Annotation: A member of the RNA family "TPP riboswitch aptamer (THI element)" from Providencia sneebia, 97 nucleotides long. The family's consensus secondary structure is taken from published work. A search with the family's covariance model found it, with a score of 74 bits.
[Rfam]
RNA sequence: CCUGUCUCAACGGGGUGCCUUUAUUUUUAGGCUGAGAAUUAACCCGUAGAACCUGAUCCGGGCAAUACCGGCGUAGGGAUUUGAGCUACCGUCAAUU
Numbered sequence: 001c002c003u004g005u006c007u008c009a010a011c012g013g014g015g016u017g018c019c020u021u022u023a024u025u026u027u028u029a030g031g032c033u034g035a036g037a038a039u040u041a042a043c044c045c046g047u048a049g050a051a052c053c054u055g056a057u058c059c060g061g062g063c064a065a066u067a068c069c070g071g072c073g074u075a076g077g078g079a080u081u082u083g084a085g086c087u088a089c090c091g092u093c094a095a096u097u
Stems, first nucleotide, its partner, number of pairs: 006085005011046004017032004052077004058071004